This 102-nucleotide RNA sequence from Thermoactinomyces daqus belongs to the Rfam family "Purine riboswitch aptamer".
The family's consensus secondary structure is taken from published work.
The organism belongs to Thermoactinomyces, within Bacteria.
RNA sequence: GAUUUUUUUCUGCCUGAAAACCGUAUAUGUUUGGGGAUACGGCCUGAACGUUUCUACCCGGCUGCCGUAAAUAGCCGGACUACGGGUGAUAAGUCUUCGGAA
Numbered sequence: 001g002a003u004u005u006u007u008u009u010c011u012g013c014c015u016g017a018a019a020a021c022c023g024u025a026u027a028u029g030u031u032u033g034g035g036g037a038u039a040c041g042g043c044c045u046g047a048a049c050g051u052u053u054c055u056a057c058c059c060g061g062c063u064g065c066c067g068u069a070a071a072u073a074g075c076c077g078g079a080c081u082a083c084g085g086g087u088g089a090u091a092a093g094u095c096u097u098c099g100g101a102a
Stems, first nucleotide, its partner, number of pairs: 019087001021085005029049007058078007